[Rfam]
RNA sequence: AGCAAAACGAUAGAAGUGUUCUGUAACUGAACUGAAUGUGGAAUUCAUAUCAGAUUGGUCUUCAAAGUUCUCUGAUUGCU
Numbered sequence: 001a002g003c004a005a006a007a008c009g010a011u012a013g014a015a016g017u018g019u020u021c022u023g024u025a026a027c028u029g030a031a032c033u034g035a036a037u038g039u040g041g042a043a044u045u046c047a048u049a050u051c052a053g054a055u056u057g058g059u060c061u062u063c064a065a066a067g068u069u070c071u072c073u074g075a076u077u078g079c080u
Base pairs, nucleotide, nucleotide: 001080002079003078004077005076